[Rfam]
RNA: Small nucleolar RNA snoR99
RNA sequence: AUGCAAUUGAGGUUAUACUUGUCCCGACAUAAAUUCCCAUUCUCUUUAACUUUGUCAGCUGGGCUUAAUUAUUUUCAGUUGAUUUUCUUGAGUGGAACAUUG
Numbered sequence: 001a002u003g004c005a006a007u008u009g010a011g012g013u014u015a016u017a018c019u020u021g022u023c024c025c026g027a028c029a030u031a032a033a034u035u036c037c038c039a040u041u042c043u044c045u046u047u048a049a050c051u052u053u054g055u056c057a058g059c060u061g062g063g064c065u066u067a068a069u070u071a072u073u074u075u076c077a078g079u080u081g082a083u084u085u086u087c088u089u090g091a092g093u094g095g096a097a098c099a100u101u102g
Base pairs, nucleotide, nucleotide: 040096041095042094044092045091054083055082056081057080058079059078060077061076